This 73-nucleotide RNA from Microcaecilia unicolor belongs to the Rfam family "mir-1421 microRNA precursor family".

RNA sequence: GAGUGUGAUGUGGUCAUGCCGUUUGCAGUAUGACUGAUAGAAGGCUGCAAACAGAAUGACCACAUCACACCCU
Numbered sequence: 001g002a003g004u005g006u007g008a009u010g011u012g013g014u015c016a017u018g019c020c021g022u023u024u025g026c027a028g029u030a031u032g033a034c035u036g037a038u039a040g041a042a043g044g045c046u047g048c049a050a051a052c053a054g055a056a057u058g059a060c061c062a063c064a065u066c067a068c069a070c071c072c073u
Stems, first nucleotide, its partner, number of pairs: 003070005009064009019054001021052001023050005

The match comes from Rfam's covariance-model search (46 bits).